[Rfam]
RNA sequence: AAGGCGUGCAGUAUAGCGUGAUCCAAAAGAUCAUGAAGCUGCAAGACGCGCACGUCUUGGUAGGAUUGCUGCUGCAGGCAACUGUAGCACCUGACUGAAAAUCAGGCUAAACGCAAAGUCGCGUCUUCUGUUGGAUUGGAAAGUAGCUUAAUCCCUGAAUCCUGCGGGAUAAUCAGGGCGUCCGAUGCUCCGCAAGAGCUGAGGACGUUGGUUGAAAUCGCAUGGUGGGUUCGCAGCCCUUUACUGCCCGCAAGGCAGACAGUAAGAGGACAGCCGAGCGAUCCAAUGGUGAACUGGCAAUGCCACCAGUAUAAAACGGCAGCUAUCGGACUUACCAGAUUGUGGCUUCGGCCUGGUUUGGUGGAAACGUUGGGAAGCCUUCCCGCAUGGAGGGUAUAAUCCAAUCAAAGAGUCCGAACCAAAACUGUAUUCUCAGGUU
Numbered sequence: 001a002a003g004g005c006g007u008g009c010a011g012u013a014u015a016g017c018g019u020g021a022u023c024c025a026a027a028a029g030a031u032c033a034u035g036a037a038g039c040u041g042c043a044a045g046a047c048g049c050g051c052a053c054g055u056c057u058u059g060g061u062a063g064g065a066u067u068g069c070u071g072c073u074g075c076a077g078g079c080a081a082c083u084g085u086a087g088c089a090c091c092u093g094a095c096u097g098a099a100a101a102u103c104a105g106g107c108u109a110a111a112c113g114c115a116a117a118g119u120c121g122c123g124u125c126u127u128c129u130g131u132u133g134g135a136u137u138g139g140a141a142a143g144u145a146g147c148u149u150a151a152u153c154c155c156u157g158a159a160u161c162c163u164g165c166g167g168g169a170u171a172a173u174c175a176g177g178g179c180g181u182c183c184g185a186u187g188c189u190c191c192g193c194a195a196g197a198g199c200u201g202a203g204g205a206c207g208u209u210g211g212u213u214g215a216a217a218u219c220g221c222a223u224g225g226u227g228g229g230u231u232c233g234c235a236g237c238c239c240u241u242u243a244c245u246g247c248c249c250g251c252a253a254g255g256c257a258g259a260c261a262g263u264a265a266g267a268g269g270a271c272a273g274c275c276g277a278g279c280g281a282u283c284c285a286a287u288g289g290u291g292a293a294c295u296g297g298c299a300a301u302g303c304c305a306c307c308a309g310u311a312u313a314a315a316a317c318g319g320c321a322g323c324u325a326u327c328g329g330a331c332u333u334a335c336c337a338g339a340u341u342g343u344g345g346c347u348u349c350g351g352c353c354u355g356g357u358u359u360g361g362u363g364g365a366a367a368c369g370u371u372g373g374g375a376a377g378c379c380u381u382c383c384c385g386c387a388u389g390g391a392g393g394g395u396a397u398a399a400u401c402c403a404a405u406c407a408a409a410g411a412g413u414c415c416g417a418a419c420c421a422a423a424a425c426u427g428u429a430u431u432c433u434c435a436g437g438u439u
Stems, first nucleotide, its partner, number of pairs: 001058007008042005017035007044126007113193002129288010144325005153178006159170003179207005187199004210275005223261001245257004302320003327416006333363010364432003369405006424438003
Giant, ornate, lake- and Lactobacillales-derived (GOLLD) RNA: a 439-nucleotide sequence from Pedosphaera parvula.
NCBI's taxonomy places the organism under Bacteria, Pseudomonadati, Verrucomicrobiota, Pedosphaerales, Pedosphaera parvula.
It is annotated as a non-coding RNA gene.
It is one of the family's seed sequences.